[Rfam]
RNA: Plastid-psbA-4 3UTR RNA
RNA sequence: GAAAGGAGCAAUAGCCAAUUUCUUGUUAUAUCAAGAAGAUUGUUAUUGCUCCUUUCC
Numbered sequence: 001g002a003a004a005g006g007a008g009c010a011a012u013a014g015c016c017a018a019u020u021u022c023u024u025g026u027u028a029u030a031u032c033a034a035g036a037a038g039a040u041u042g043u044u045a046u047u048g049c050u051c052c053u054u055u056c057c
Stems, first nucleotide, its partner, number of pairs: 002055012017040001020037006